[Rfam]
RNA sequence: GGCCUGAUAAGACGCGUAAGCGUCGCAUCAGGCAAUGGUGCUCGGAUGCCGGAUGCGGCGUGAACGCCUUAUCCGGCA
Numbered sequence: 001g002g003c004c005u006g007a008u009a010a011g012a013c014g015c016g017u018a019a020g021c022g023u024c025g026c027a028u029c030a031g032g033c034a035a036u037g038g039u040g041c042u043c044g045g046a047u048g049c050c051g052g053a054u055g056c057g058g059c060g061u062g063a064a065c066g067c068c069u070u071a072u073c074c075g076g077c078a
Stems, first nucleotide, its partner, number of pairs: 002033007011024004048077008057068004

Description
Rfam assigns this 78-nucleotide sequence from Escherichia coli to the family "Nucleoid-associated noncoding RNA 4 (CssrE)". A search with the family's covariance model found it, with a score of 62 bits. Rfam's curators write: In E. coli small RNA transcribed from repeated extragenic palindromic element (REP325) called nucleoid-associated ncRNA 4 (nRNA4) collaborates HU protein in condensing the DNA. The secondary structure but not the sequence of the RNA is important in nucleoid condensation. Also identified in Shigella as CssrE. The base pairs follow the family's consensus structure, which is taken from published work. It is annotated as a small RNA. Rfam 15.1 lists 870 matches to the family in 32 species. Taxonomically the source falls in Escherichia coli (Bacteria, Pseudomonadota, Enterobacteriaceae, Escherichia). Its family is annotated with protein binding, bacterial nucleoid DNA packaging and bacterial nucleoid in the Gene Ontology. The literature on the family includes a 2015 paper in MBio by Qian et al., "A New Noncoding RNA Arranges Bacterial Chromosome Organization".